Description: The record is a 354-nucleotide part of an RNA from Candidatus Schmidhempelia bombi, which matches "Bacterial small subunit ribosomal RNA" in Rfam. On this family, see Yusupov et al., Science 2001: "Crystal structure of the ribosome at 5.5 A resolution". Taxonomically the source falls in Candidatus Schmidhempelia bombi (Bacteria, Pseudomonadota, Gammaproteobacteria, Candidatus Schmidhempelia).
RNA sequence: GGCGUAAAGGGCAUGUAGGCGGAUGAUUAAGUUAGGUGUGAAAGCCCCGGGCUCAACCUGGGAAUUGCAUUUAAAACUGGUCGUCUGGAGUAUUGUAGAGGAAGGUAGAAUUCCACGUGUAGCGGUGAAAUGCGUAGAGAUGUGGAGGAAUACCGGUGGCGAAGGCGGCCUUCUGGACAGAUACUGACGCUGAGAUGCGAAAGCGUGGGGAGCAAACAGGAUUAGAUACCCUGGUAGUCCACGCUGUAAACGAUGUCGAUUUGGAAUUUGCGGUCUUGAGCUGUGGGUUCCGGAGCUAACGCGUUAAAUCGACCGCCUGGGGAGUACGGCCGCAAGGUUAAAACUCAAAUGAAU
Numbered sequence: 001g002g003c004g005u006a007a008a009g010g011g012c013a014u015g016u017a018g019g020c021g022g023a024u025g026a027u028u029a030a031g032u033u034a035g036g037u038g039u040g041a042a043a044g045c046c047c048c049g050g051g052c053u054c055a056a057c058c059u060g061g062g063a064a065u066u067g068c069a070u071u072u073a074a075a076a077c078u079g080g081u082c083g084u085c086u087g088g089a090g091u092a093u094u095g096u097a098g099a100g101g102a103a104g105g106u107a108g109a110a111u112u113c114c115a116c117g118u119g120u121a122g123c124g125g126u127g128a129a130a131u132g133c134g135u136a137g138a139g140a141u142g143u144g145g146a147g148g149a150a151u152a153c154c155g156g157u158g159g160c161g162a163a164g165g166c167g168g169c170c171u172u173c174u175g176g177a178c179a180g181a182u183a184c185u186g187a188c189g190c191u192g193a194g195a196u197g198c199g200a201a202a203g204c205g206u207g208g209g210g211a212g213c214a215a216a217c218a219g220g221a222u223u224a225g226a227u228a229c230c231c232u233g234g235u236a237g238u239c240c241a242c243g244c245u246g247u248a249a250a251c252g253a254u255g256u257c258g259a260u261u262u263g264g265a266a267u268u269u270g271c272g273g274u275c276u277u278g279a280g281c282u283g284u285g286g287g288u289u290c291c292g293g294a295g296c297u298a299a300c301g302c303g304u305u306a307a308a309u310c311g312a313c314c315g316c317c318u319g320g321g322g323a324g325u326a327c328g329g330c331c332g333c334a335a336g337g338u339u340a341a342a343a344c345u346c347a348a349a350u351g352a353a354u
Base pairs, nucleotide, nucleotide: 001317002316003315009314011198012197013196014195016192018191019190020189022085023084024083025082026081027080028079030078031077032074033073034072035071036070037069038068039067040066046062047061048060049059050058051057089185090184091183093180094179095178096177100174101173102172103171104170105169106168107151111147112146113145114144115143116142117141118140122133123132124131159166160165203244204243205242206241207240208239212238213237217233218232219231220230255313256312257311258310259309260308263291264290265289266288267287268286269285270284271283272282273281274280295302296301319346320345321344328339329338330337331336